[Rfam]
RNA sequence: UUUCGCCCUAUCUUACACCGGAACCUCUUGAUUCAGUGCAGUGUUCUGGCACUAUAAGGGGACAGAGUCCUACGCUCUCUUCCCUCCCUACUGGAUGUUGUUCCUCCAAGGGCCUUAAAGAAGCACACAGU
Dot-bracket structure: ..((.((((........((((((.((.(.........).))..)))))).......))))))...........((..(.......((((..((((.........)))))))).......)..)).......
Record summary:
A member of the RNA family "Small nucleolar RNA SNORA49" from Hucho hucho, 131 nucleotides long. By type it is an H/ACA-box small nucleolar RNA. Rfam's curators write: The snoRNA ACA49 has no identified RNA target. NB genomic sequence 1-nt different from published.